[Rfam]
Small nucleolar RNA SNORA3/SNORA45 family: a 132-nucleotide RNA sequence from Takifugu rubripes. The family's consensus secondary structure was predicted with RNAalifold. Rfam links the family to the GO terms nucleolus and RNA processing. A search with the family's covariance model found it, with a score of 83 bits. Rfam describes the family as follows. The members of this family belong to the H/ACA class of snoRNAs which are thought to guide the sites of modification of uridines to pseudouridines. This family includes mouse snoMBI-28 and human homologues ACA3 (SNORA3) and ACA3-2 (SNORA45). The family's RNA type in Rfam is H/ACA-box small nucleolar RNA. The organism belongs to Takifugu, within Eukaryota.

RNA sequence: AGCGAGGCUAGAGUCACGCCUGGACACGCUCCAUUGUCCUGGUGUGCUAGAGCGCUCGCAGAGGAAACCUCUUUGCUUAUUCAUUGGCUGUAGUCUGUUGUGGCCCAGUCAACCACCAGCUCAGAAACACUU
Numbered sequence: 001a002g003c004g005a006g007g008c009u010a011g012a013g014u015c016a017c018g019c020c021u022g023g024a025c026a027c028g029c030u031c032c033a034u035u036g037u038c039c040u041g042g043u044g045u046g047c048u049a050g051a052g053c054g055c056u057c058g059c060a061g062a063g064g065a066a067a068c069c070u071c072u073u074u075g076c077u078u079a080u081u082c083a084u085u086g087g088c089u090g091u092a093g094u095c096u097g098u099u100g101u102g103g104c105c106c107a108g109u110c111a112a113c114c115a116c117c118a119g120c121u122c123a124g125a126a127a128c129a130c131u132u
Base pairs, nucleotide, nucleotide: 002059003058004057005056006055007053008052009051012048013047015046016045017044018043019042020041023038024037025036026035071124072123075120076119077118084112085111086110087109089107090106094102